[Rfam]
RNA sequence: ACCGGGAAACGUCGAUACAAUAAACAGGACAACAGCCCACAACAACAUCCCACUGAGUGGGAUGUUGUUGUGGGCUGUUGUCCUGUUUA
Number, nucleotide and partner (000 for none) at each position: 001a000002c000003c000004g000005g000006g000007a000008a000009a000010c000011g000012u000013c000014g000015a000016u000017a000018c000019a000020a000021u089022a088023a087024a000025c085026a084027g083028g082029a000030c080031a079032a000033c077034a076035g075036c074037c073038c000039a000040c000041a000042a069043c067044a066045a065046c064047a063048u062049c061050c060051c059052a000053c000054u000055g000056a000057g000058u000059g051060g050061g049062a048063u047064g046065u045066u044067g043068u000069u042070g000071u000072g000073g037074g036075c035076u034077g033078u000079u031080g030081u000082c028083c027084u026085g025086u000087u023088u022089a021
RNA: Insect-specific Flavivirus 3' UTR cis-acting replication element (CRE)
Organism: Ixodes scapularis